[Rfam]
RNA: Guanidine-II riboswitch aptamer (mini-ykkC)
Organism: Paracoccus subflavus
RNA sequence: GCCAGAGGACGACCUCUCCAUCAUGGGCAGACAGGCCGGGACGACCCGG
Numbered sequence: 001g002c003c004a005g006a007g008g009a010c011g012a013c014c015u016c017u018c019c020a021u022c023a024u025g026g027g028c029a030g031a032c033a034g035g036c037c038g039g040g041a042c043g044a045c046c047c048g049g
Stems, first nucleotide, its partner, number of pairs: 001019001004017005036049005